The family of this 59-nucleotide sequence from Duganella sp. 1224 is "Selenocysteine insertion sequence 3". Rfam links the family to the GO term selenocysteine incorporation. It is annotated as a cis-regulatory element. The literature on the family includes a 1996 paper in RNA by Huttenhofer et al., "Solution structure of mRNA hairpins promoting selenocysteine incorporation in Escherichia coli and their base-specific interaction with special elongation factor SELB".

RNA sequence: GUUUGACACGGUCCAACGGUGGCAGGUCUUGCCUCGACAUUUGGACGUGGUGCGAUGAC
Dot-bracket structure: ......((((.((.((.((.(((((...))))))).....)))).))))..........
Numbered sequence: 001g002u003u004u005g006a007c008a009c010g011g012u013c014c015a016a017c018g019g020u021g022g023c024a025g026g027u028c029u030u031g032c033c034u035c036g037a038c039a040u041u042u043g044g045a046c047g048u049g050g051u052g053c054g055a056u057g058a059c
Stems, first nucleotide, its partner, number of pairs: 007049004012044002015042002018035002021033005